Description:
The record is a 179-nucleotide sequence from Rhodococcus sp. R04, which matches "Actinobacteria sRNA Ms_IGR-5" in Rfam. The literature on the family includes a 2013 paper in RNA by Li et al., "Identification of small RNAs in Mycobacterium smegmatis using heterologous Hfq".
[Rfam]
RNA sequence: ACACGAGGAAGGAGGUGGUCUGGAAGUGAUUGAUAUUCGGACGCGUGAGGUGGCUACCCGCUAGCUGCUCGAGACGACGGAAUUCACCGACCGCGCGCGGCUGGCGAAUCCCAGGUAGUCACCCGGCCCCCGAGUCCCCGGUCCGUCCGAUCGGGACCGCCGACUGCGGAGCGAUCCGU
Numbered sequence: 001a002c003a004c005g006a007g008g009a010a011g012g013a014g015g016u017g018g019u020c021u022g023g024a025a026g027u028g029a030u031u032g033a034u035a036u037u038c039g040g041a042c043g044c045g046u047g048a049g050g051u052g053g054c055u056a057c058c059c060g061c062u063a064g065c066u067g068c069u070c071g072a073g074a075c076g077a078c079g080g081a082a083u084u085c086a087c088c089g090a091c092c093g094c095g096c097g098c099g100g101c102u103g104g105c106g107a108a109u110c111c112c113a114g115g116u117a118g119u120c121a122c123c124c125g126g127c128c129c130c131c132g133a134g135u136c137c138c139c140g141g142u143c144c145g146u147c148c149g150a151u152c153g154g155g156a157c158c159g160c161c162g163a164c165u166g167c168g169g170a171g172c173g174a175u176c177c178g179u
Base pairs, nucleotide, nucleotide: 014058015057016056017055018054019053059106060105061104062103063102064101065100067098068097124173125172127171129169130168133165134164135163136162137155138154139153140152141151142150